This 77-nucleotide RNA sequence from Eptesicus fuscus belongs to the Rfam family "mir-9186 microRNA precursor family".
[Rfam]
RNA sequence: AGGGUGAAGGUUGCGGUAUGGCUGGUACUGAGAUAAUGGCUGCUCCAGUAUCAGACAUGCCGCCCCCCUCCCUGUAC
Number, nucleotide and partner (000 for none) at each position: 001a075002g000003g073004g072005u000006g070007a069008a000009g067010g000011u000012u000013g063014c062015g061016g060017u059018a058019u057020g000021g000022c054023u053024g052025g051026u050027a049028c048029u047030g046031a000032g000033a000034u000035a000036a000037u000038g000039g000040c000041u000042g000043c000044u000045c000046c030047a029048g028049u027050a026051u025052c024053a023054g022055a000056c000057a019058u018059g017060c016061c015062g014063c013064c000065c000066c000067c009068c000069u007070c006071c000072c004073u003074g000075u001076a000077c000

Pairs were carried over by alignment from the consensus structure, which was predicted with RNAalifold.